The record is a 58-nucleotide sequence from Megamonas hypermegale, which matches "Glycine riboswitch aptamer" in Rfam.
A search with the family's covariance model found it, with a score of 34 bits.
Gene Ontology term of the family: glycine biosynthetic process.
Pairs were carried over by alignment from the consensus structure.
[Rfam]
RNA sequence: CUCUGGAAAGCAUUAAAUGCACCGAAGAAGUUAAAUCUUUCAGGUAACAAGGACAGAG
Numbered sequence: 001c002u003c004u005g006g007a008a009a010g011c012a013u014u015a016a017a018u019g020c021a022c023c024g025a026a027g028a029a030g031u032u033a034a035a036u037c038u039u040u041c042a043g044g045u046a047a048c049a050a051g052g053a054c055a056g057a058g
Stems, first nucleotide, its partner, number of pairs: 001058005011019003021045003024041002028039003